Enteroviral 3' UTR element: a 121-nucleotide sequence from Enterovirus betacoxsackie. The source organism's lineage runs through Viruses, Riboviria, Orthornavirae, Ensavirinae and Enterovirus B. The literature on the family includes a 1999 paper in Nucleic Acids Res by Wang et al., "Structural requirements of the higher order RNA kissing element in the enteroviral 3'UTR". It is annotated as a cis-regulatory element. This RNA structure is found in the 3' UTR of various enteroviruses. The overall structure forms the origin of replication (OriR) for the initiation of (-) strand RNA synthesis. Pseudoknots have also been predicted in this structure.

RNA sequence: AAGUGGUUGGAUUCCUUCUAAAUUAGAGACAAUUCGAUAAAAUUUGAAUUGGCUUAACCCUACUGCGCUAACCGAACUAGACAACGGCGCAGUAGGGGUAAAUUCUCCGCAUUCGGUGCGG
Numbered sequence: 001a002a003g004u005g006g007u008u009g010g011a012u013u014c015c016u017u018c019u020a021a022a023u024u025a026g027a028g029a030c031a032a033u034u035c036g037a038u039a040a041a042a043u044u045u046g047a048a049u050u051g052g053c054u055u056a057a058c059c060c061u062a063c064u065g066c067g068c069u070a071a072c073c074g075a076a077c078u079a080g081a082c083a084a085c086g087g088c089g090c091a092g093u094a095g096g097g098g099u100a101a102a103u104u105c106u107c108c109g110c111a112u113u114c115g116g117u118g119c120g121g
Stems, first nucleotide, its partner, number of pairs: 024057001026055003030051008058097012071117006107121004